[Rfam]
RNA sequence: UUGUUCCUUUUUUCUUGGGUAUAUGACUCUUUAAAAAUUGGUUCUAAAGAGAUGUGGGGCAUGGGAAAAUAGGGCAA
Numbered sequence: 001u002u003g004u005u006c007c008u009u010u011u012u013u014c015u016u017g018g019g020u021a022u023a024u025g026a027c028u029c030u031u032u033a034a035a036a037a038u039u040g041g042u043u044c045u046a047a048a049g050a051g052a053u054g055u056g057g058g059g060c061a062u063g064g065g066a067a068a069a070u071a072g073g074g075c076a077a
Stems, first nucleotide, its partner, number of pairs: 011068007019060002022056003027051007

Source information
The record is a 77-nucleotide RNA from Mionectes macconnelli, which matches "mir-202 microRNA precursor family" in Rfam. It scores 53 bits against the family's covariance model. Rfam 15.1 lists 673 matches to the family in 631 species. On this family, see Bentwich et al., Nat Genet 2005: "Identification of hundreds of conserved and nonconserved human microRNAs". Taxonomically the source falls in Mionectes (Eukaryota, Opisthokonta, Archosauria, Passeriformes). The base pairs follow the family's consensus structure, which was predicted with RNAalifold. Gene Ontology terms of the family: RISC complex and miRNA-mediated post-transcriptional gene silencing.